RNA: S6-S18-Chlorobi ribosomal protein leader
RNA sequence: AAGCACGUGGUGUUCAUGAUGCUUCAUGAAGCCGUGGAGCGGAAGCCGGGCGCAAUGGCUCUGUUCCCGCCACAUGCUC
Numbered sequence: 001a002a003g004c005a006c007g008u009g010g011u012g013u014u015c016a017u018g019a020u021g022c023u024u025c026a027u028g029a030a031g032c033c034g035u036g037g038a039g040c041g042g043a044a045g046c047c048g049g050g051c052g053c054a055a056u057g058g059c060u061c062u063g064u065u066c067c068c069g070c071c072a073c074a075u076g077c078u079c
Stems, first nucleotide, its partner, number of pairs: 002078004007073006013030007036067004044060003